[Rfam]
RNA sequence: AGAAAAUUUUGCCAAACUUGUUGUGAAGCAAGGACGGAAAGCCAUGGGUCUCAAUGGUUGAGAUCGCCAGGUUGCCAAA
Number, nucleotide and partner (000 for none) at each position: 001a000002g000003a000004a000005a000006a000007u000008u000009u000010u000011g000012c037013c036014a000015a000016a000017c032018u031019u030020g029021u028022u027023g000024u000025g000026a000027a022028g021029c020030a019031a018032g017033g000034a000035c000036g013037g012038a000039a000040a073041g072042c071043c070044a000045u069046g068047g067048g064049u063050c062051u061052c060053a059054a058055u000056g000057g000058u054059u053060g052061a051062g050063a049064u048065c000066g000067c047068c046069a045070g043071g042072u041073u040074g000075c000076c000077a000078a000079a000
A member of the RNA family "c-di-GMP-I riboswitch aptamer" from Hydrogenovibrio crunogenus, 79 nucleotides long. It is one of the family's seed sequences.